[Rfam]
Nucleotides: 105
Stems, first nucleotide, its partner, number of pairs: 003063006021051006
Number, partner (000 for none) and nucleotide at each position: 001000c002000u003063u004062u005061c006060c007059g008058a009000g010000g011000a012000g013000c014000g015000u016000u017000g018000c019000g020000g021051c022050u023049c024048g025047u026046c027000c028000c029000g030000c031000c032000u033000g034000u035000u036000u037000c038000a039000c040000c041000a042000g043000g044000c045000c046026g047025a048024c049023g050022g051021g052000u053000u054000a055000g056000g057000c058008u059007c060006g061005g062004a063003a064000c065000c066000c067000a068000g069000g070000g071000c072000g073000g074000c075000a076000u077000g078000c079000c080000c081000u082000g083000c084000c085000u086000u087000c088000c089000a090000a091000c092000u093000g094000c095000g096000c097000u098000c099000a100000c101000c102000c103000a104000c105000c
Rfam assigns this 105-nucleotide sequence from Curvibacter sp. PAE-UM to the family "SAH (S-adenosyl-L-homocysteine) riboswitch aptamer". Rfam links the family to the GO terms regulation of gene expression and S-adenosylhomocysteine metabolic process. Taxonomically the source falls in Curvibacter (Bacteria, Pseudomonadota, Burkholderiales, Comamonadaceae). A search with the family's covariance model found it, with a score of 53 bits.